[Rfam]
RNA sequence: UUCAAUGAACUGACAGCUUUCUUAGAAAGUUUGACUAAUUAAUCUUCUGCAAUGCUAUUAAGAGGAUUACCCUUUGAGGUUUAUAGCAAUAGGCCACUCCUAUGAUUAGUCACGUGAUUUGUUGAA
Numbered sequence: 001u002u003c004a005a006u007g008a009a010c011u012g013a014c015a016g017c018u019u020u021c022u023u024a025g026a027a028a029g030u031u032u033g034a035c036u037a038a039u040u041a042a043u044c045u046u047c048u049g050c051a052a053u054g055c056u057a058u059u060a061a062g063a064g065g066a067u068u069a070c071c072c073u074u075u076g077a078g079g080u081u082u083a084u085a086g087c088a089a090u091a092g093g094c095c096a097c098u099c100c101u102a103u104g105a106u107u108a109g110u111c112a113c114g115u116g117a118u119u120u121g122u123u124g125a126a
Base pairs, nucleotide, nucleotide: 001126002125003124004123005122006121007120008119009118016030017029018028019027020026033111034110035109036108037107038106039105041068042067043066044065045064046063047062054087055086056085057084058083089103090102091101092100093099
Dot-bracket structure: (((((((((......(((((.....)))))..(((((((.(((((((......[[[[[...)))))))..............]]]]].(((((.....))))).)))))))......)))))))))